[Rfam]
RNA sequence: UUGCUGUGGAGCUCUGUGAUACACACACGCAGUAAUGUGUGGUGUGUGUGUGCAUCACAGAGCUCCACAGCAAU
Numbered sequence: 001u002u003g004c005u006g007u008g009g010a011g012c013u014c015u016g017u018g019a020u021a022c023a024c025a026c027a028c029g030c031a032g033u034a035a036u037g038u039g040u041g042g043u044g045u046g047u048g049u050g051u052g053c054a055u056c057a058c059a060g061a062g063c064u065c066c067a068c069a070g071c072a073a074u
Stems, first nucleotide, its partner, number of pairs: 004070013022052004028048004
Description
The family of this 74-nucleotide sequence from Leptobrachium leishanense is "mir-148/mir-152 microRNA precursor family". NCBI's taxonomy places the organism under Eukaryota, Opisthokonta, Bilateria, Amphibia, Leptobrachium. Gene Ontology terms of the family: miRNA-mediated post-transcriptional gene silencing and RISC complex. Pairs were carried over by alignment from the consensus structure, which was predicted with RNAalifold. On this family, see Lagos-Quintana et al., Curr Biol 2002: "Identification of tissue-specific microRNAs from mouse".